About this RNA
The record is an 80-nucleotide RNA from Microcaecilia unicolor, which matches "mir-194 microRNA precursor family" in Rfam. The base pairs follow the family's consensus structure, which was predicted with RNAalifold. It scores 86 bits against the family's covariance model. The family has 46 seed sequences and 936 matches in Rfam 15.1. For this family Rfam cites "Reduced accumulation of specific microRNAs in colorectal neoplasia" (Michael et al., Mol Cancer Res, 2003).

[Rfam]
RNA sequence: CGGUGUGUAUCAGGUGUAACAGCAACUCCAUGUGGACUGUAAUAGUUUCCAGUGGAGAUGCUGUUACUUUUGAUGGGCAC
Numbered sequence: 001c002g003g004u005g006u007g008u009a010u011c012a013g014g015u016g017u018a019a020c021a022g023c024a025a026c027u028c029c030a031u032g033u034g035g036a037c038u039g040u041a042a043u044a045g046u047u048u049c050c051a052g053u054g055g056a057g058a059u060g061c062u063g064u065u066a067c068u069u070u071u072g073a074u075g076g077g078c079a080c
Stems, first nucleotide, its partner, number of pairs: 010073003016067008026057006033051003